[Rfam]
RNA: Plastid-psbN 5UTR RNA
RNA sequence: UGCGACUCCCAUUAAUGGUGUAGUCCCCAGCCGGAGCUACUUUACCAUAUUCCGAAUUC
Number, nucleotide and partner (000 for none) at each position: 001u000002g000003c000004g000005a000006c000007u000008c000009c000010c000011a000012u000013u000014a000015a000016u000017g043018g042019u000020g040021u039022a038023g037024u036025c034026c033027c000028c000029a000030g000031c000032c000033g026034g025035a000036g024037c023038u022039a021040c020041u000042u018043u017044a000045c000046c000047a000048u000049a000050u000051u000052c000053c000054g000055a000056a000057u000058u000059c000